SmY spliceosomal RNA: a 79-nucleotide sequence from Caenorhabditis remanei. Taxonomically the source falls in Caenorhabditis (Eukaryota, Eumetazoa, Nematoda, Rhabditomorpha). On this family, see MacMorris et al., RNA 2007: "A novel family of C. elegans snRNPs contains proteins associated with trans-splicing".
RNA sequence: UGGUGCACCUCGUAUUCUAUGGGCCUUCUUUCAAGACCCUGAAAUAAAUUUUGGAGACCCGUCAUUCCGAUGGCGGGUG
Numbered sequence: 001u002g003g004u005g006c007a008c009c010u011c012g013u014a015u016u017c018u019a020u021g022g023g024c025c026u027u028c029u030u031u032c033a034a035g036a037c038c039c040u041g042a043a044a045u046a047a048a049u050u051u052u053g054g055a056g057a058c059c060c061g062u063c064a065u066u067c068c069g070a071u072g073g074c075g076g077g078u079g
Stems, first nucleotide, its partner, number of pairs: 021039003025035003057078009

The family's consensus secondary structure is taken from published work.